The record is a 230-nucleotide RNA from Streptomyces sp. MS191, which matches "Streptomyces sRNA 4677" in Rfam. The family's RNA type in Rfam is small RNA. From the family's description: Located in the intergenic region between anti-sigma factor SCO4677 gene and a putative regulatory protein gene SCO4676. scr4677 expression requires the SCO4677 activity and scr4677 sRNA itself seem to affect the levels of the SCO4676-associated transcripts.
RNA sequence: UGUUCUCGCGCUCCGGUCGCUCGCCGUCCUAAAAGAAAAAGUACCUGGGAAAGUACCUACCCAACCCCCCCUGACCCCCCAACUGCCGCCGCCACACGAUCGGGUGACGUGGUGUCGACAGGGCGGGCGGGUGCGGUACGUUCACCGCAACAACUGGCAUAUGCAACUCGGCCCCCGGCAGGACUGGCAUCCUGACGAGGGCCUACCGCUCAGGAAGAGAACGCUUCCCG
Dot-bracket structure: .......(((.....((.(............................................................).)).........(((.(....).)))....((((............................)))).......................(((((.((..((((......))))..)).)))))...)))...(((((......)))))..
Numbered sequence: 001u002g003u004u005c006u007c008g009c010g011c012u013c014c015g016g017u018c019g020c021u022c023g024c025c026g027u028c029c030u031a032a033a034a035g036a037a038a039a040a041g042u043a044c045c046u047g048g049g050a051a052a053g054u055a056c057c058u059a060c061c062c063a064a065c066c067c068c069c070c071c072u073g074a075c076c077c078c079c080c081a082a083c084u085g086c087c088g089c090c091g092c093c094a095c096a097c098g099a100u101c102g103g104g105u106g107a108c109g110u111g112g113u114g115u116c117g118a119c120a121g122g123g124c125g126g127g128c129g130g131g132u133g134c135g136g137u138a139c140g141u142u143c144a145c146c147g148c149a150a151c152a153a154c155u156g157g158c159a160u161a162u163g164c165a166a167c168u169c170g171g172c173c174c175c176c177g178g179c180a181g182g183a184c185u186g187g188c189a190u191c192c193u194g195a196c197g198a199g200g201g202c203c204u205a206c207c208g209c210u211c212a213g214g215a216a217g218a219g220a221a222c223g224c225u226u227c228c229c230g
Stems, first nucleotide, its partner, number of pairs: 008209003016083002019080001093106003097102001111146004170203005176197002180193004213228005

The source organism's lineage runs through Bacteria, Actinomycetota, Actinomycetes, Streptomycetaceae and Streptomyces. The base pairs follow the family's consensus structure.